The record is an 86-nucleotide RNA from Liparis tanakae, which matches "mir-132 microRNA precursor family" in Rfam.

RNA sequence: GUGCAUCAAUACCUUGGCUCUAGACCGCUUACUGCCGAGAACUCGUCCAAAGAGUAACAGUCUACAGUCAUGGCUACUGACGUCUG
Number, nucleotide and partner (000 for none) at each position: 001g000002u000003g000004c000005a000006u000007c000008a000009a000010u000011a000012c073013c072014u000015u070016g069017g068018c067019u000020c000021u000022a000023g062024a061025c060026c000027g058028c000029u057030u056031a055032c054033u053034g000035c000036c000037g000038a000039g000040a000041a000042c000043u000044c000045g000046u000047c000048c000049a000050a000051a000052g000053a033054g032055u031056a030057a029058c027059a000060g025061u024062c023063u000064a000065c000066a000067g018068u017069c016070a015071u000072g013073g012074c000075u000076a000077c000078u000079g000080a000081c000082g000083u000084c000085u000086g000
The organism belongs to Liparis, within Eukaryota. Rfam 15.1 lists 1,023 matches to the family in 386 species. For this family Rfam cites "The developmental miRNA profiles of zebrafish as determined by small RNA cloning" (Chen et al., Genes Dev, 2005). The match comes from Rfam's covariance-model search (65 bits). The family's consensus secondary structure was predicted with RNAalifold.